[Rfam]
Nucleotides: 102
Base pairs, nucleotide, nucleotide: 001102002101003100004099005098006097007096008095013042014041015040016039017038021031022030023029025079026078027077028076043071044070045069046068048067049066051063052062053061075094080091081090082089083088
Number, partner (000 for none) and nucleotide at each position: 001102u002101u003100c004099u005098u006097a007096u008095c009000a010000c011000g012000a013042g014041a015040g016039g017038u018000g019000g020000a021031g022030g023029g024000a025079c026078u027077g028076g029023c030022c031021c032000u033000a034000u035000g036000a037000u038017a039016c040015c041014u042013c043071g044070g045069c046068a047000g048067c049066g050000g051063a052062u053061u054000c055000g056000u057000u058000a059000g060000g061053a062052a063051u064000a065000c066049u067048g068046u069045g070044c071043c072000a073000a074000u075094u076028c077027c078026a079025g080091c081090a082089a083088g084000g085000u086000a087000a088083c089082u090081u091080g092000a093000a094075a095008g096007a097006u098005a099004a100003g101002a102001a
This 102-nucleotide sequence from Bacillus thuringiensis belongs to the Rfam family "SAM riboswitch aptamer (S box leader)". It is one of the family's seed sequences. About the family: The SAM riboswitch is found upstream of a number of genes which code for proteins involved in methionine or cysteine biosynthesis in Gram-positive bacteria. The SAM riboswitch acts at the level of transcription termination control. The predicted structure consists of a complex stem-loop region followed by a single stem loop terminator region. Pairs were carried over by alignment from the consensus structure, which is taken from published work.